Shown here is a 261-nucleotide RNA sequence from Bacillus sp. PK3_68, a member of the family "BsrG". It is annotated as a small RNA. bsrE, bsrG and bsrH pair through intermolecular interactions with antisense sRNAs. They form type I toxin/antitoxin system that includes an mRNA encoding for a short, toxic peptide (bsrE, bsrG and bsrH) and an antitoxin that is comprised of an antisense RNA. bsrG encodes a 39-amino-acid toxin, and the 180 nucleotide antisense sRNA called SR4 acts as the antitoxin (they overlap by 123 nucleotides). SR4 interaction with the 3'UTR of bsrG RNA promotes bsrG degradation and inhibits its translation. BsrG interferes with cell envelope biosynthesis, causes membrane invaginations and delocalisation of the cell wall synthesis and initiates autolysis. bsrE RNA encodes 30 amino-acid toxin peptide. For this family Rfam cites "Novel small RNA-encoding genes in the intergenic regions of Bacillus subtilis" (Saito et al., Gene, 2008). The organism belongs to Bacillus, within Bacteria.
RNA sequence: CAAUAGAAUAGGCUUCUCAAGGGUGGUCGGCACACUCCUCCAAUGGACAAGGAGGGAGGUGAUGCCGUGUGACAACGUUUGAAACACUUAUGUUUGCAAUAGCUUUUGCGGGAUUAGUCGUGUCAAUUUUGUCAUUUCAUAAAAAGACUAAAACCGCCCUUGAGUUUACCCGGCUCCGGCGGUUUUAGCAUGUUAGAUGCUGAUCUCCUAAAAGGGACCUGCUAUUGCAUAGCCGUUUCGAUGUGUCCAGCAUCGAAGCGG
Numbered sequence: 001c002a003a004u005a006g007a008a009u010a011g012g013c014u015u016c017u018c019a020a021g022g023g024u025g026g027u028c029g030g031c032a033c034a035c036u037c038c039u040c041c042a043a044u045g046g047a048c049a050a051g052g053a054g055g056g057a058g059g060u061g062a063u064g065c066c067g068u069g070u071g072a073c074a075a076c077g078u079u080u081g082a083a084a085c086a087c088u089u090a091u092g093u094u095u096g097c098a099a100u101a102g103c104u105u106u107u108g109c110g111g112g113a114u115u116a117g118u119c120g121u122g123u124c125a126a127u128u129u130u131g132u133c134a135u136u137u138c139a140u141a142a143a144a145a146g147a148c149u150a151a152a153a154c155c156g157c158c159c160u161u162g163a164g165u166u167u168a169c170c171c172g173g174c175u176c177c178g179g180c181g182g183u184u185u186u187a188g189c190a191u192g193u194u195a196g197a198u199g200c201u202g203a204u205c206u207c208c209u210a211a212a213a214g215g216g217a218c219c220u221g222c223u224a225u226u227g228c229a230u231a232g233c234c235g236u237u238u239c240g241a242u243g244u245g246u247c248c249a250g251c252a253u254c255g256a257a258g259c260g261g
Base pairs, nucleotide, nucleotide: 001227002226003225004224005223009221011219014203015202016164017163018162019161020160021159022158023157025154027152033061034060038058039057040056041055071133072132073131074130075129077127107125108124174196175195204217205216206215207214233261234260235259236258237257238256239255240254241253242252243251244250